RNA sequence: GCCGCUUCCGCUUUUUAUCCUUGUAUAUAUUCAGAAAUAAGGUCUGAAUGUUUCUACCAAGCUGCCGUAAAUAGCUAGACUACAAGGGAAUUUAUUCGGGUA
Numbered sequence: 001g002c003c004g005c006u007u008c009c010g011c012u013u014u015u016u017a018u019c020c021u022u023g024u025a026u027a028u029a030u031u032c033a034g035a036a037a038u039a040a041g042g043u044c045u046g047a048a049u050g051u052u053u054c055u056a057c058c059a060a061g062c063u064g065c066c067g068u069a070a071a072u073a074g075c076u077a078g079a080c081u082a083c084a085a086g087g088g089a090a091u092u093u094a095u096u097c098g099g100g101u102a
Stems, first nucleotide, its partner, number of pairs: 018088008029049007058078001060076005
RNA: Purine riboswitch aptamer
Organism: Niallia endozanthoxylica